A member of the RNA family "T-box leader" from Ruminiclostridium cellulolyticum, 237 nucleotides long. The match comes from Rfam's covariance-model search (131 bits). Lineage of the source: Bacteria > Bacillota > Clostridia > Ruminiclostridium > Ruminiclostridium cellulolyticum. The base pairs follow the family's consensus structure, which is taken from published work. About the family: Uncharged tRNA acts as the effector for transcription antitermination of genes in the T-box leader family. T-boxes are found upstream of many aminoacyl-tRNA synthetase genes and some amino acid biosynthetic genes usually in Gram-positive bacteria. The anticodon of a specific tRNA base pairs to a specifier sequence within the T-box motif, and the NCCA acceptor tail of the tRNA base pairs to a conserved bulge in the T-box antiterminator hairpin.

RNA sequence: CUAAAUAUGAUGAUUGGAAAGAGUAGAAAGCAGUUGGCUUUACAGAGAGUGGAAGAGUGGUGGGAUUUCCGCAGGUUCAAGCUUUUGAAAAUCAUCCAUGAGUUGCAGCCUGAAAAACAAUAAGAAGUAGGGUGUGCCGGUGAUGAGCCGUUAUAAAACGAAGUGAUUAUUGUCAUGUUUUAUUUUCAUGCUGCAAAAAUAAUUUGGGUGGUACCGCGAAAUAGCCUCGUCCCUUUG
Numbered sequence: 001c002u003a004a005a006u007a008u009g010a011u012g013a014u015u016g017g018a019a020a021g022a023g024u025a026g027a028a029a030g031c032a033g034u035u036g037g038c039u040u041u042a043c044a045g046a047g048a049g050u051g052g053a054a055g056a057g058u059g060g061u062g063g064g065a066u067u068u069c070c071g072c073a074g075g076u077u078c079a080a081g082c083u084u085u086u087g088a089a090a091a092u093c094a095u096c097c098a099u100g101a102g103u104u105g106c107a108g109c110c111u112g113a114a115a116a117a118c119a120a121u122a123a124g125a126a127g128u129a130g131g132g133u134g135u136g137c138c139g140g141u142g143a144u145g146a147g148c149c150g151u152u153a154u155a156a157a158a159c160g161a162a163g164u165g166a167u168u169a170u171u172g173u174c175a176u177g178u179u180u181u182a183u184u185u186u187c188a189u190g191c192u193g194c195a196a197a198a199a200u201a202a203u204u205u206g207g208g209u210g211g212u213a214c215c216g217c218g219a220a221a222u223a224g225c226c227u228c229g230u231c232c233c234u235u236u237g
Base pairs, nucleotide, nucleotide: 007103008102015098016097017096018095026086027085028084029083030082031081038075039074040073049072050071051070052069053068054067106136107135108133109132110131111130138150139149140148166200167199168198170196171195172194206233207232208231216230217229218228219227